[Rfam]
RNA sequence: AGCCUAAACCACCGAGCAAUCGGUGGCAUGGUGAACAAGUCCUCUUAAGUAAAGAACCCAUCAUGUGGGGUCGCUUAAGAGGCCAUAUCAGGAAACUGGUAUGAGUGACUUCGGUCACU
Numbered sequence: 001a002g003c004c005u006a007a008a009c010c011a012c013c014g015a016g017c018a019a020u021c022g023g024u025g026g027c028a029u030g031g032u033g034a035a036c037a038a039g040u041c042c043u044c045u046u047a048a049g050u051a052a053a054g055a056a057c058c059c060a061u062c063a064u065g066u067g068g069g070g071u072c073g074c075u076u077a078a079g080a081g082g083c084c085a086u087a088u089c090a091g092g093a094a095a096c097u098g099g100u101a102u103g104a105g106u107g108a109c110u111u112c113g114g115u116c117a118c119u
Stems, first nucleotide, its partner, number of pairs: 002032003009026007041082010054072002057069005084103008104119006
RNA: LOOT RNA